[Rfam]
RNA sequence: CCGGGCACCCGACUUGACCCCGGGCAGGGGCGGAGGAACCAGGUUUGUUGCCGUCCUCCACGGCUUGGGGUGAAGCCGCGUCAGCCGAAACGUUCCGCCAAGGAGCGUCAGGCCCAGCGGCCGGGCCACCUCCCGGUCCGAACCCGACAGCUCACUUCGUAGGCGUGCGGAGAGGGAACUU
Numbered sequence: 001c002c003g004g005g006c007a008c009c010c011g012a013c014u015u016g017a018c019c020c021c022g023g024g025c026a027g028g029g030g031c032g033g034a035g036g037a038a039c040c041a042g043g044u045u046u047g048u049u050g051c052c053g054u055c056c057u058c059c060a061c062g063g064c065u066u067g068g069g070g071u072g073a074a075g076c077c078g079c080g081u082c083a084g085c086c087g088a089a090a091c092g093u094u095c096c097g098c099c100a101a102g103g104a105g106c107g108u109c110a111g112g113c114c115c116a117g118c119g120g121c122c123g124g125g126c127c128a129c130c131u132c133c134c135g136g137u138c139c140g141a142a143c144c145c146g147a148c149a150g151c152u153c154a155c156u157u158c159g160u161a162g163g164c165g166u167g168c169g170g171a172g173a174g175g176g177a178a179c180u181u
Base pairs, nucleotide, nucleotide: 001163002162008029009028010027030160031159032158033157034156035155040067041066042065043064044063045062068145069144070143076120077119078118079117123139124138125137126136
The family of this 181-nucleotide RNA from Kitasatospora sp. MMS16-BH015 is "c-di-AMP riboswitch aptamer (ydaO/yuaA leader)". A search with the family's covariance model found it, with a score of 60 bits.